[Rfam]
Background
The record is a 75-nucleotide RNA sequence, which matches "ASpks TB sRNA" in Rfam. The family's RNA type in Rfam is antisense RNA.

RNA sequence: CUUCACCGAGCCCAGCCACAGCGGUCGCUCCUCGGAGCGGCCUUGGCCGUACGUGGCGAGCAGGGCCUGUGCCUC
Numbered sequence: 001c002u003u004c005a006c007c008g009a010g011c012c013c014a015g016c017c018a019c020a021g022c023g024g025u026c027g028c029u030c031c032u033c034g035g036a037g038c039g040g041c042c043u044u045g046g047c048c049g050u051a052c053g054u055g056g057c058g059a060g061c062a063g064g065g066c067c068u069g070u071g072c073c074u075c
Base pairs, nucleotide, nucleotide: 015025016024017023031071033069038065043060044059047056048055049054